Mason-Pfizer monkey virus packaging signal: a 275-nucleotide RNA from Nannospalax galili. The family's RNA type in Rfam is cis-regulatory element. The organism belongs to Nannospalax, within Eukaryota. Rfam describes the family as follows. This family represents a group of sequences that are related to the Mason-Pfizer monkey virus (MPMV) packaging signal. The packaging signal is located in the 5' UTR and is required for specific RNA encapsidation. Its family is annotated with viral genome packaging in the Gene Ontology.
RNA sequence: UGGCACCCAACGUGGGGUCUGGAUACUGGGGGACAACGUGAGGGACACGACGAAAGAAGAAGGGGUUCGCACCCCACUCAAAUAGUUCAGAGAUGUCGCAGUAGCCUGCUGUGACUGAGCCGACAGGUAAGUUGGUCGUUCAAUCAUGGGACAAGAAUUAAGUCAGCAUCAGAAAUAUGUGAUAGAGUUAAAAGAAGCUUUACAGGCAAGAGGAGUAAAGGUUACAACUGAGGAUUCAUUUCAUUUCUUUCAUUUUGUAAAGGACAUUUGUCCCU
Dot-bracket structure: .....(((...(((.........)))..))).....(((.......)))..................................(.(..........(((((.......)))))............).)....(.((..((((....)))))).)....(((((.................................)).))).......((((((....((((.........))))........)))))).........(.((((....)))).)